[Rfam]
RNA sequence: GUCGGGAGGGCGGCAGCCAUACAACACCCGAAAGGGAAAAGCUGUACGGCCGUUCUUCGUACGGUUUCUUAGCCUCCCGACACCCCUGC
Numbered sequence: 001g002u003c004g005g006g007a008g009g010g011c012g013g014c015a016g017c018c019a020u021a022c023a024a025c026a027c028c029c030g031a032a033a034g035g036g037a038a039a040a041g042c043u044g045u046a047c048g049g050c051c052g053u054u055c056u057u058c059g060u061a062c063g064g065u066u067u068c069u070u071a072g073c074c075u076c077c078c079g080a081c082a083c084c085c086c087u088g089c
Stems, first nucleotide, its partner, number of pairs: 001081009013045003017041001027036003048066006
A member of the RNA family "sRNA-Xcc1" from Lysobacter soli, 89 nucleotides long. By type it is a small RNA. The literature on the family includes a 2011 paper in RNA Biol by Chen et al., "sRNA-Xcc1, an integron-encoded transposon- and plasmid-transferred trans-acting sRNA, is under the positive control of the key virulence regulators HrpG and HrpX of Xanthomonas campestris pathovar campestris". The match comes from Rfam's covariance-model search (72 bits).